[Rfam]
RNA sequence: AUUGUGCGGCAGUAUAGGACUGAAACUGUGGGAAGACUUACAUGAUUCUACCCCUUUUCAUUUUCAUGCUGCUUUGGAG
Dot-bracket structure: .......((((((((.(((.((((...(.((((.(((......).)).).))))..)))).))).))))))))......
Description
mir-5890 microRNA precursor family: a 79-nucleotide RNA from Haemonchus placei. Its family is annotated with RISC complex and miRNA-mediated post-transcriptional gene silencing in the Gene Ontology. The family's consensus secondary structure was predicted with RNAalifold.